The record is a 115-nucleotide sequence from Dehalobacter sp. 12DCB1, which matches "FMN riboswitch aptamer (RFN element)" in Rfam.
The RFN element is a highly conserved domain that is found frequently in the 5'-untranslated regions of prokaryotic mRNAs that encode for flavin mononucleotide (FMN) biosynthesis and transport proteins.
[Rfam]
RNA sequence: UUUUUACUCUGGGGAUAGGUGUAAUUCCUUACCGGCGGUACAGCCCGCGAGCCUUAUGGCAGAUUCGUUGAAAUUACGAAGCCGACAGUUAAAGUCUGGAUGGAAAGAGCAAAAC
Numbered sequence: 001u002u003u004u005u006a007c008u009c010u011g012g013g014g015a016u017a018g019g020u021g022u023a024a025u026u027c028c029u030u031a032c033c034g035g036c037g038g039u040a041c042a043g044c045c046c047g048c049g050a051g052c053c054u055u056a057u058g059g060c061a062g063a064u065u066c067g068u069u070g071a072a073a074u075u076a077c078g079a080a081g082c083c084g085a086c087a088g089u090u091a092a093a094g095u096c097u098g099g100a101u102g103g104a105a106a107g108a109g110c111a112a113a114a115c
Stems, first nucleotide, its partner, number of pairs: 003113003007109004017029003031095002033084002035048004043082002051060003064080005086098003